[Rfam]
RNA sequence: AGAGGCCCUCCGAGGCCGGGGUAGAAUGCUUGCCUCGUUGCCAUGGCAACAAAGCAAGCGUUCUGCCAGGCCGCUCGUGCUGCCUGC
Number, nucleotide and partner (000 for none) at each position: 001a000002g000003a000004g084005g083006c082007c000008c000009u000010c000011c000012g074013a000014g072015g071016c070017c069018g000019g000020g067021g066022u065023a064024g063025a062026a061027u060028g059029c058030u057031u056032g055033c054034c000035u000036c000037g050038u049039u048040g047041c046042c000043a000044u000045g000046g041047c040048a039049a038050c037051a000052a000053a000054g033055c032056a031057a030058g029059c028060g027061u026062u025063c024064u023065g022066c021067c020068a000069g017070g016071c015072c014073g000074c012075u000076c000077g000078u000079g000080c000081u000082g006083c005084c004085u000086g000087c000